[Rfam]
RNA sequence: UGACAAUGAUGAUAUUGUAAUUGUCUCAUUUGUGGCUGUUAAUCAUGGCCUUGACGAGCACUCUAUAUAUCACUACCCAUAUUCUGAGUUG
Numbered sequence: 001u002g003a004c005a006a007u008g009a010u011g012a013u014a015u016u017g018u019a020a021u022u023g024u025c026u027c028a029u030u031u032g033u034g035g036c037u038g039u040u041a042a043u044c045a046u047g048g049c050c051u052u053g054a055c056g057a058g059c060a061c062u063c064u065a066u067a068u069a070u071c072a073c074u075a076c077c078c079a080u081a082u083u084c085u086g087a088g089u090u091g
Stems, first nucleotide, its partner, number of pairs: 001091004041052002043047001

About this RNA:
The record is a 91-nucleotide RNA sequence from Papaver somniferum, which matches "Small nucleolar RNA Z43" in Rfam. Taxonomically the source falls in Papaver (Eukaryota, Viridiplantae, Magnoliopsida, Ranunculales). The base pairs follow the family's consensus structure, which was predicted with PFOLD. It scores 47 bits against the family's covariance model.